[Rfam]
RNA sequence: GCUAGGCGCAGGCCGACUAAAAUCGCCACUUCCUGCGGCAACGUCGGCACUAGGACUUCCUAUCCG
Numbered sequence: 001g002c003u004a005g006g007c008g009c010a011g012g013c014c015g016a017c018u019a020a021a022a023u024c025g026c027c028a029c030u031u032c033c034u035g036c037g038g039c040a041a042c043g044u045c046g047g048c049a050c051u052a053g054g055a056c057u058u059c060c061u062a063u064c065c066g
Stems, first nucleotide, its partner, number of pairs: 012048006025039003029035001053065003
RNA: Bacillaceae-1 RNA
Organism: Mesobacillus zeae